[Rfam]
RNA sequence: UAUUAAGGAAGUUCGACGAAAAGCAUCACGUCCUGUGAUAACGUCGAACUGACUUACCUCCUGUAAG
Number, nucleotide and partner (000 for none) at each position: 001u000002a000003u000004u000005a000006a000007g000008g000009a000010a000011g049012u048013u047014c046015g045016a044017c043018g000019a000020a000021a000022a000023g000024c000025a039026u038027c037028a036029c035030g000031u000032c000033c000034u000035g029036u028037g027038a026039u025040a000041a000042c000043g017044u016045c015046g014047a013048a012049c011050u000051g000052a000053c067054u066055u065056a064057c063058c000059u000060c000061c000062u000063g057064u056065a055066a054067g053
The family of this 67-nucleotide RNA from Pueribacillus theae is "Bacillaceae-1 RNA". The family's RNA type in Rfam is small RNA.